[Rfam]
Shown here is a 158-nucleotide RNA from Spirodela intermedia, a member of the family "Small nucleolar RNA snoR77".
RNA sequence: AGGCAACCCCCUUGCCGCUAAUAGCAAUUCCCCUGGCAUCGGAGGUGUUAAUUUGCUCUUACAACGAAGAACAAGCUUCUGCUCUUCAGAUUUGCUGAGAGGUUGGGGGUCUCGGCUCCCAUCUUCUCUGAAGCUGGUCUAGUAAGCCUAAGCACAUC
Numbered sequence: 001a002g003g004c005a006a007c008c009c010c011c012u013u014g015c016c017g018c019u020a021a022u023a024g025c026a027a028u029u030c031c032c033c034u035g036g037c038a039u040c041g042g043a044g045g046u047g048u049u050a051a052u053u054u055g056c057u058c059u060u061a062c063a064a065c066g067a068a069g070a071a072c073a074a075g076c077u078u079c080u081g082c083u084c085u086u087c088a089g090a091u092u093u094g095c096u097g098a099g100a101g102g103u104u105g106g107g108g109g110u111c112u113c114g115g116c117u118c119c120c121a122u123c124u125u126c127u128c129u130g131a132a133g134c135u136g137g138u139c140u141a142g143u144a145a146g147c148c149u150a151a152g153c154a155c156a157u158c
Stems, first nucleotide, its partner, number of pairs: 002049004007045002009042002013038005076152003081147003088140005094134003099126003
Notes:
The family's consensus secondary structure was predicted with WAR. Its family is annotated with nucleolus and RNA processing in the Gene Ontology. The source organism's lineage runs through Eukaryota, Euphyllophyta, Magnoliopsida, Araceae and Spirodela.